Shown here is a 187-nucleotide RNA from Klebsiella phage 2 LV-2017, a member of the family "Gammaproteobacterial sRNA STnc100". The match comes from Rfam's covariance-model search (81 bits). The family's consensus secondary structure was predicted with CMfinder.
RNA sequence: GAAAAUUAACAUGUUGUUAAUCUAUUCGUGUGGUGAAUCCCCCUAUGCGGAGGGGCGACCAGUCACUUACAGUGAUCUGUAAAUGCAGCGCGGGCCAUGUCGACUGGGACAUGCUCACCGGGAGGCACCCGGCACCAUAAUGCAAUGCUACAUAAGCUAUUUGGUAGUGGGGUUGCCGUUUCGGCUU
Numbered sequence: 001g002a003a004a005a006u007u008a009a010c011a012u013g014u015u016g017u018u019a020a021u022c023u024a025u026u027c028g029u030g031u032g033g034u035g036a037a038u039c040c041c042c043c044u045a046u047g048c049g050g051a052g053g054g055g056c057g058a059c060c061a062g063u064c065a066c067u068u069a070c071a072g073u074g075a076u077c078u079g080u081a082a083a084u085g086c087a088g089c090g091c092g093g094g095c096c097a098u099g100u101c102g103a104c105u106g107g108g109a110c111a112u113g114c115u116c117a118c119c120g121g122g123a124g125g126c127a128c129c130c131g132g133c134a135c136c137a138u139a140a141u142g143c144a145a146u147g148c149u150a151c152a153u154a155a156g157c158u159a160u161u162u163g164g165u166a167g168u169g170g171g172g173u174u175g176c177c178g179u180u181u182c183g184g185c186u187u
Stems, first nucleotide, its partner, number of pairs: 014145003030138006040055005063081001085091002092116004097112003118132005154187003162178005

NCBI's taxonomy places the organism under Viruses, Duplodnaviria, Heunggongvirae, Uroviricota, Caudoviricetes.